DUF805 RNA: a 69-nucleotide RNA from Flavobacterium cheongpyeongense. By type it is a cis-regulatory element.
[Rfam]
RNA sequence: UAAAAGUGGAGUUCAGAAACCACUAUAAAAACGGGGUGAAAUCCGAAAAGCCUUAUGAGUAGGAACUAC
Numbered sequence: 001u002a003a004a005a006g007u008g009g010a011g012u013u014c015a016g017a018a019a020c021c022a023c024u025a026u027a028a029a030a031a032c033g034g035g036g037u038g039a040a041a042u043c044c045g046a047a048a049a050g051c052c053u054u055a056u057g058a059g060u061a062g063g064a065a066c067u068a069c
Base pairs, nucleotide, nucleotide: 006023007022008021009020035052036051037050042063043062